[Rfam]
RNA sequence: UGACGGGGGCCCGCACAAGCGGAGGAACAUGUGGUUUAAUUCGAUGAUACGCGAGGAACCUUACCCGGGCUUGAAAUGCAUCUGACGAACUUGGAAACAGGUUUUCUAGCAAUAGCAGAUGUGUAGGUGCUGCAUGGUUGUCGUCAGCUCGUGCCGUGAGGUGUCGGCUUAAGUGCCAUAACGAGCGCAACCCUUGUCAUUAGUUACUAACAGGUUAAGCUGAGGACUCUAAUGAGACUGCCAUCGUAAGAUGCGAGGAAGGUGGGGAUGACGCCAAAUCAGCACGGCCCUUACGUCCGGGGCGACACACGUGUUACAAUGGAGGGUACAGAGGGUCGCUACCUAGUGAUAGGAUGCUAAUCUCGAAAGCCUUUCGUAGUUCGGAUUGGAGUCUGCAACUCGACUCCAUGAAGCCGGAUUCGCUAGUAAUCGCGCAUCAGCCAUGGCGCGGUGAAUACGUUCCCGGGCCUUGUACACACCGCCCGUCAAGCCAUGGGAGUUGGGGGUGCCUAAAGAUUGUGACCGCAAGGAGCGAUUUAGGGCAAAACCAGUGACUGGGGCUAAGUCGUAACAAGGUAGCCGUACCGGAAGGUGUGGCUG
Numbered sequence: 001u002g003a004c005g006g007g008g009g010c011c012c013g014c015a016c017a018a019g020c021g022g023a024g025g026a027a028c029a030u031g032u033g034g035u036u037u038a039a040u041u042c043g044a045u046g047a048u049a050c051g052c053g054a055g056g057a058a059c060c061u062u063a064c065c066c067g068g069g070c071u072u073g074a075a076a077u078g079c080a081u082c083u084g085a086c087g088a089a090c091u092u093g094g095a096a097a098c099a100g101g102u103u104u105u106c107u108a109g110c111a112a113u114a115g116c117a118g119a120u121g122u123g124u125a126g127g128u129g130c131u132g133c134a135u136g137g138u139u140g141u142c143g144u145c146a147g148c149u150c151g152u153g154c155c156g157u158g159a160g161g162u163g164u165c166g167g168c169u170u171a172a173g174u175g176c177c178a179u180a181a182c183g184a185g186c187g188c189a190a191c192c193c194u195u196g197u198c199a200u201u202a203g204u205u206a207c208u209a210a211c212a213g214g215u216u217a218a219g220c221u222g223a224g225g226a227c228u229c230u231a232a233u234g235a236g237a238c239u240g241c242c243a244u245c246g247u248a249a250g251a252u253g254c255g256a257g258g259a260a261g262g263u264g265g266g267g268a269u270g271a272c273g274c275c276a277a278a279u280c281a282g283c284a285c286g287g288c289c290c291u292u293a294c295g296u297c298c299g300g301g302g303c304g305a306c307a308c309a310c311g312u313g314u315u316a317c318a319a320u321g322g323a324g325g326g327u328a329c330a331g332a333g334g335g336u337c338g339c340u341a342c343c344u345a346g347u348g349a350u351a352g353g354a355u356g357c358u359a360a361u362c363u364c365g366a367a368a369g370c371c372u373u374u375c376g377u378a379g380u381u382c383g384g385a386u387u388g389g390a391g392u393c394u395g396c397a398a399c400u401c402g403a404c405u406c407c408a409u410g411a412a413g414c415c416g417g418a419u420u421c422g423c424u425a426g427u428a429a430u431c432g433c434g435c436a437u438c439a440g441c442c443a444u445g446g447c448g449c450g451g452u453g454a455a456u457a458c459g460u461u462c463c464c465g466g467g468c469c470u471u472g473u474a475c476a477c478a479c480c481g482c483c484c485g486u487c488a489a490g491c492c493a494u495g496g497g498a499g500u501u502g503g504g505g506g507u508g509c510c511u512a513a514a515g516a517u518u519g520u521g522a523c524c525g526c527a528a529g530g531a532g533c534g535a536u537u538u539a540g541g542g543c544a545a546a547a548c549c550a551g552u553g554a555c556u557g558g559g560g561c562u563a564a565g566u567c568g569u570a571a572c573a574a575g576g577u578a579g580c581c582g583u584a585c586c587g588g589a590a591g592g593u594g595u596g597g598c599u600g
Stems, first nucleotide, its partner, number of pairs: 001476002003473003007470007015460002019423005024317001026315008034306002040055004064301007076124003080120005087104007106115003126290002129288004135284002137279003140275001142273002147186006153162003166177003192267004197235007207224002211222003238258002241255001242253004321375007333364003338357002343352003382413001387408007429452007479575001481572001484568002489562004494557003499552005507544004515537006523530002577600010
Bacterial small subunit ribosomal RNA: a 600-nucleotide part of an RNA from Paludibacter jiangxiensis.
NCBI's taxonomy places the organism under Bacteria, Pseudomonadati, Bacteroidota, Bacteroidia, Paludibacter.